[Rfam]
RNA sequence: AUGAGUUCUUAUUUUUUUUGACUAAAGAGAAAUGUUCGAUUGUUAGAUUUAACGAAGAAAAUCGGAAGCCAAUACGUUAGGGCUCAAUUCCCUUGAAAAUCCU
Numbered sequence: 001a002u003g004a005g006u007u008c009u010u011a012u013u014u015u016u017u018u019u020g021a022c023u024a025a026a027g028a029g030a031a032a033u034g035u036u037c038g039a040u041u042g043u044u045a046g047a048u049u050u051a052a053c054g055a056a057g058a059a060a061a062u063c064g065g066a067a068g069c070c071a072a073u074a075c076g077u078u079a080g081g082g083c084u085c086a087a088u089u090c091c092c093u094u095g096a097a098a099a100u101c102c103u
Stems, first nucleotide, its partner, number of pairs: 015027004032062002036058001041054005079093004
RNA: Heliobacter pylori small RNA HPnc0580